Description
A member of the RNA family "Purine riboswitch aptamer" from Paenibacillus cremeus, 102 nucleotides long. The family's consensus secondary structure is taken from published work. Taxonomically the source falls in Paenibacillus (Bacteria, Bacillati, Bacilli, Paenibacillaceae).
RNA sequence: UCAUAGAAAGUCGAAUAAUCUCGUAUAAAGUCGGGAAUACGGCCCGAAAGUUUCUACCCAAAAACCAUAAAUUUUUGGACUACGAGUGAACGAGCGAACUGG
Numbered sequence: 001u002c003a004u005a006g007a008a009a010g011u012c013g014a015a016u017a018a019u020c021u022c023g024u025a026u027a028a029a030g031u032c033g034g035g036a037a038u039a040c041g042g043c044c045c046g047a048a049a050g051u052u053u054c055u056a057c058c059c060a061a062a063a064a065c066c067a068u069a070a071a072u073u074u075u076u077g078g079a080c081u082a083c084g085a086g087u088g089a090a091c092g093a094g095c096g097a098a099c100u101g102g
Base pairs, nucleotide, nucleotide: 020086021085022084023083024082025081031047032046033045034044035043058078059077060076061075062074063073064072